[Rfam]
RNA sequence: GUGCGGGCUUAGCCGUGUGGUUACUUCGUUUACUCUGAAUCUUACUGCUAGACUCUUCCCUAAGCUUGAAACCACUGGCGCUGUCCCGCACCCCC
Numbered sequence: 001g002u003g004c005g006g007g008c009u010u011a012g013c014c015g016u017g018u019g020g021u022u023a024c025u026u027c028g029u030u031u032a033c034u035c036u037g038a039a040u041c042u043u044a045c046u047g048c049u050a051g052a053c054u055c056u057u058c059c060c061u062a063a064g065c066u067u068g069a070a071a072c073c074a075c076u077g078g079c080g081c082u083g084u085c086c087c088g089c090a091c092c093c094c095c
Stems, first nucleotide, its partner, number of pairs: 002090006012079004017075004025070004
RNA: Vault RNA